[Rfam]
Rfam assigns this 162-nucleotide RNA from Salmonella enterica to the family "isrQ Hfq binding RNA". The literature on the family includes a 2008 paper in Nucleic Acids Res by Padalon-Brauch et al., "Small RNAs encoded within genetic islands of Salmonella typhimurium show host-induced expression and role in virulence".
RNA sequence: UCAUGUGAUCUAACGUAUCACGACUAAACGUAAGGGUAAAGCGGCUGGCGUGUCGCCCGGGCAUAAAGUCAUAUCGCCUGAACAGAGAACAUGUUACUGACUUUGAAACGCGAUUUUAUAAUUUGCUGCUCAAAAAUACGUGGCGCUGAAAGGCACAUUUUU
Numbered sequence: 001u002c003a004u005g006u007g008a009u010c011u012a013a014c015g016u017a018u019c020a021c022g023a024c025u026a027a028a029c030g031u032a033a034g035g036g037u038a039a040a041g042c043g044g045c046u047g048g049c050g051u052g053u054c055g056c057c058c059g060g061g062c063a064u065a066a067a068g069u070c071a072u073a074u075c076g077c078c079u080g081a082a083c084a085g086a087g088a089a090c091a092u093g094u095u096a097c098u099g100a101c102u103u104u105g106a107a108a109c110g111c112g113a114u115u116u117u118a119u120a121a122u123u124u125g126c127u128g129c130u131c132a133a134a135a136a137u138a139c140g141u142g143g144c145g146c147u148g149a150a151a152g153g154c155a156c157a158u159u160u161u162u
Stems, first nucleotide, its partner, number of pairs: 004022006010015001028141005034131004038104004042099003046096008057085001058080005063074003110126004143156001145154003